[Rfam]
Rfam assigns this 484-nucleotide sequence from Monodelphis domestica to the family "Vertebrate telomerase RNA".
Nucleotides: 484
Base pairs, nucleotide, nucleotide: 008160010158012156013155015153019150020149021148061093062092063091064090065089066088067087068086077142078141079140080139081138083135084134085133167401168400170398171397233369234368235367236366237365238364239363240362241361247355248354249353250352252350253349255345256344257343258342271318272317273316274315275314277313280310283306284305285304320332321331322330323329414476415475416474417473419471420470421469422468423467424466433462434461435460439455440454441453442452
Number, partner (000 for none) and nucleotide at each position: 001000u002000a003000a004000g005000u006000g007000g008160g009000g010158u011000u012156g013155g014000c015153u016000g017000g018000c019150u020149u021148g022000c023000g024000u025000u026000u027000c028000g029000u030000u031000u032000c033000u034000a035000u036000c037000a038000u039000g040000g041000u042000a043000a044000g045000g046000g047000u048000c049000g050000c051000g052000g053000c054000u055000g056000c057000c058000c059000c060000a061093g062092c063091u064090c065089g066088c067087u068086g069000u070000u071000u072000u073000g074000g075000u076000g077142g078141c079140u080139g081138a082000c083135u084134u085133u086068c087067a088066g089065c090064g091063g092062g093061c094000a095000g096000a097000g098000g099000a100000g101000g102000c103000a104000g105000a106000a107000g108000c109000u110000g111000a112000g113000c114000c115000g116000u117000a118000g119000u120000a121000g122000g123000g124000a125000c126000g127000c128000g129000c130000a131000a132000a133085a134084a135083a136000c137000a138081u139080c140079a141078g142077c143000c144000u145000g146000g147000c148021c149020a150019g151000a152000a153015g154000c155013c156012c157000c158010a159000a160008u161000g162000c163000g164000u165000g166000g167401c168400c169000c170398g171397u172000u173000c174000g175000c176000c177000c178000c179000g180000u181000c182000c183000g184000g185000a186000c187000c188000c189000a190000g191000c192000c193000c194000c195000g196000g197000c198000c199000c200000g201000a202000a203000c204000c205000c206000c207000c208000u209000g210000g211000g212000a213000g214000u215000g216000c217000c218000c219000c220000c221000c222000g223000c224000a225000g226000g227000c228000c229000u230000c231000g232000c233369g234368c235367u236366c237365g238364c239363c240362u241361u242000c243000g244000g245000a246000g247355c248354c249353c250352u251000g252350g253349c254000u255345g256344c257343c258342c259000a260000c261000c262000a263000g264000c265000a266000g267000a268000g269000g270000c271318g272317g273316c274315g275314g276000c277313u278000g279000u280310c281000u282000c283306g284305g285304g286000u287000c288000c289000c290000u291000g292000a293000g294000u295000g296000c297000c298000g299000g300000g301000g302000c303000u304285c305284c306283c307000a308000c309000u310280g311000u312000g313277g314275c315274c316273g317272c318271c319000a320332a321331g322330a323329g324000u325000u326000c327000g328000g329323c330322u331321c332320u333000g334000u335000c336000a337000g338000c339000c340000u341000c342258g343257g344256g345255c346000u347000g348000c349253g350252c351000g352250g353249g354248g355247g356000a357000c358000c359000g360000c361241a362240g363239g364238g365237c366236g367235a368234g369233c370000c371000c372000c373000a374000a375000g376000a377000c378000c379000g380000g381000g382000c383000g384000g385000g386000g387000g388000g389000c390000c391000g392000g393000g394000g395000c396000u397171a398170c399000a400168g401167g402000g403000a404000g405000a406000g407000u408000a409000a410000u411000c412000c413000a414476g415475a416474g417473g418000u419471g420470c421469a422468c423467u424466c425000a426000g427000a428000c429000g430000g431000c432000u433462g434461g435460g436000c437000u438000c439455u440454c441453c442452c443000u444000c445000a446000a447000a448000c449000c450000a451000u452442g453441g454440g455439a456000g457000c458000u459000a460435c461434c462433c463000c464000c465000a466424g467423g468422g469421u470420g471419c472000c473417c474416c475415u476414c477000a478000c479000a480000c481000a482000c483000a484000a
Overview
By type it is a non-coding RNA gene. Rfam's curators write: Telomerase is a ribonucleoprotein reverse transcriptase that synthesises telomeric DNA. Telomerase RNAs differ greatly in sequence and structure between vertebrates, ciliates and yeasts, but they share a 5' pseudoknot structure close to the template sequence. Vertebrate telomerase RNAs have a 3' H/ACA snoRNA-like domain.